[Rfam]
Nucleotides: 128
Base pairs, nucleotide, nucleotide: 006051007050008049009048010047013044014043015042021036024033067121070118071117072116073115078109079108080107081106082105086100087099088098
Number, partner (000 for none) and nucleotide at each position: 001000g002000u003000u004000c005000a006051u007050u008049g009048a010047a011000a012000a013044u014043c015042a016000u017000g018000c019000c020000u021036g022000g023000a024033c025000u026000a027000u028000g029000u030000c031000g032000u033024g034000g035000a036021u037000u038000g039000g040000g041000u042015u043014g044013a045000g046000a047010u048009u049008c050007a051006g052000c053000a054000c055000c056000c057000a058000a059000g060000g061000c062000c063000a064000c065000c066000a067121g068000g069000a070118g071117c072116c073115u074000c075000a076000g077000c078109u079108c080107a081106c082105c083000g084000c085000c086100c087099a088098c089000u090000g091000c092000c093000a094000a095000g096000g097000u098088g099087u100086g101000g102000g103000a104000g105082g106081g107080u108079g109078a110000a111000a112000c113000c114000u115073a116072g117071g118070c119000c120000c121067c122000c123000a124000a125000a126000a127000g128000c